Source information:
Streptococcus sRNA SpF59 (ldcC RNA): a 62-nucleotide RNA from Lachnospira multipara.
RNA sequence: UGACCACUUUUUAAAACUAGUUUAAAAAGGUAAGCCUAACGGACAGGCGGGUCGGUUGCCGG
Numbered sequence: 001u002g003a004c005c006a007c008u009u010u011u012u013a014a015a016a017c018u019a020g021u022u023u024a025a026a027a028a029g030g031u032a033a034g035c036c037u038a039a040c041g042g043a044c045a046g047g048c049g050g051g052u053c054g055g056u057u058g059c060c061g062g
Base pairs, nucleotide, nucleotide: 001054002053003052004051005050007029008028009027010026011025012024013023014022015021

The literature on the family includes a 2012 paper in PLoS Pathog by Mann et al., "Control of virulence by small RNAs in Streptococcus pneumoniae". The match comes from Rfam's covariance-model search (49 bits).